[Rfam]
RNA sequence: AUACGUUCACUCCCAUUGGGAGCGCAUGCAUUCUAGUGAUGGAACGGGCACUAG
Number, nucleotide and partner (000 for none) at each position: 001a000002u000003a000004c046005g045006u044007u043008c042009a000010c022011u021012c020013c019014c018015a000016u000017u000018g014019g013020g012021a011022g010023c000024g000025c000026a000027u000028g000029c000030a000031u000032u000033c054034u053035a052036g051037u050038g049039a000040u000041g000042g008043a007044a006045c005046g004047g000048g000049c038050a037051c036052u035053a034054g033
This 54-nucleotide RNA sequence belongs to the Rfam family "Glutamine-II riboswitch aptamer".
The family's consensus secondary structure is taken from published work.